Nucleotides: 097
Stems, first nucleotide, its partner, number of pairs: 004091003008087001009084006015076001017075005024069006035060004043052003
Number, partner (000 for none) and nucleotide at each position: 001000u002000a003000u004091u005090a006089a007000u008087g009084c010083c011082a012081u013080u014079g015076c016000g017075c018074g019073u020072a021071u022000c023000u024069u025068u026067u027066a028065g029064c030000g031000a032000a033000c034000c035060a036059g037058g038057u039000c040000a041000g042000g043052a044051c045050c046000g047000g048000a049000a050045g051044g052043u053000a054000g055000c056000a057038g058037c059036c060035u061000u062000a063000a064029g065028u066027u067026a068025g069024a070000a071021a072020u073019g074018c075017g076015g077000u078000g079014c080013a081012g082011u083010g084009g085000u086000u087008u088000u089006u090005u091004a092000a093000a094000u095000a096000u097000g

Notes:
The record is a 97-nucleotide sequence from Firmicutes bacterium CAG:345, which matches "Bacterial small signal recognition particle RNA" in Rfam. A search with the family's covariance model found it, with a score of 63 bits. The source organism's lineage runs through Bacteria, Bacillati and Bacillota. It is annotated as a non-coding RNA gene.